[Rfam]
RNA: L20-Deltaproteobacteria ribosomal protein leader
RNA sequence: GCCCCAGAAUCGUGAGGAAACGGCCCCUUACGGAUCGGGUAACUAUCACAAAAGGAG
Numbered sequence: 001g002c003c004c005c006a007g008a009a010u011c012g013u014g015a016g017g018a019a020a021c022g023g024c025c026c027c028u029u030a031c032g033g034a035u036c037g038g039g040u041a042a043c044u045a046u047c048a049c050a051a052a053a054g055g056a057g
Stems, first nucleotide, its partner, number of pairs: 003039003007036002010033008